[Rfam]
RNA sequence: UUCUUAUCAAGAGAGGUGGAGGGACUGACCCUGCGAAGCCUCGGCAACCAGCAUUCAAAUGCACGGUGCCAAUUUCAGAGGAAUAAUCACAAUUCCGAAGAUGAGAA
Number, nucleotide and partner (000 for none) at each position: 001u107002u106003c105004u104005u103006a102007u101008c100009a000010a000011g000012a000013g042014a041015g040016g039017u038018g000019g000020a000021g031022g030023g029024a000025c078026u077027g076028a075029c023030c022031c021032u000033g000034c000035g000036a000037a000038g017039c016040c015041u014042c013043g070044g069045c068046a067047a000048c066049c065050a000051g062052c061053a060054u059055u000056c000057a000058a000059a054060u053061g052062c051063a000064c000065g049066g048067u046068g045069c044070c043071a000072a000073u000074u099075u028076c027077a026078g025079a000080g095081g094082a093083a000084u091085a000086a000087u000088c000089a000090c000091a084092a000093u082094u081095c080096c000097g000098a000099a074100g008101a007102u006103g005104a004105g003106a002107a001
RNA: SAM riboswitch aptamer (S box leader)